This 116-nucleotide RNA sequence from Muraenolepis orangiensis belongs to the Rfam family "Small nucleolar RNA U6-53/MBII-28".
RNA sequence: CUCCGAUGAUGAUUCCGCCAUGCUAAUACCGAUGGCCUCGGGUCAGGCAGUGUGUGUCUGACCCGGGGCCAUGUGAGUUCAACCUACUCUCUCACUGGACUAGUGGGCUGAGGAGA
Numbered sequence: 001c002u003c004c005g006a007u008g009a010u011g012a013u014u015c016c017g018c019c020a021u022g023c024u025a026a027u028a029c030c031g032a033u034g035g036c037c038u039c040g041g042g043u044c045a046g047g048c049a050g051u052g053u054g055u056g057u058c059u060g061a062c063c064c065g066g067g068g069c070c071a072u073g074u075g076a077g078u079u080c081a082a083c084c085u086a087c088u089c090u091c092u093c094a095c096u097g098g099a100c101u102a103g104u105g106g107g108c109u110g111a112g113g114a115g116a
Base pairs, nucleotide, nucleotide: 001115002114003113004112044060045059046058047057048056

Overview:
The source organism's lineage runs through Eukaryota, Opisthokonta, Euteleostomi, Muraenolepidoidei and Muraenolepis.